[Rfam]
RNA sequence: AAACCCUACGGUUUUCAGGUCCGCCGCAACUCCUGAUCCGUAGGGCGGCUGGCCCGGUAUCGGACAAGAGUGGCCUCUUCGACAAACCGGACCGGGUCAGCCAACCC
Numbered sequence: 001a002a003a004c005c006c007u008a009c010g011g012u013u014u015u016c017a018g019g020u021c022c023g024c025c026g027c028a029a030c031u032c033c034u035g036a037u038c039c040g041u042a043g044g045g046c047g048g049c050u051g052g053c054c055c056g057g058u059a060u061c062g063g064a065c066a067a068g069a070g071u072g073g074c075c076u077c078u079u080c081g082a083c084a085a086a087c088c089g090g091a092c093c094g095g096g097u098c099a100g101c102c103a104a105c106c107c
Base pairs, nucleotide, nucleotide: 004045005044006043007042008041009040010039015036016035017034018033019032047102048101049100050099051098052097053096054095055094056093057092
RNA: EcpR1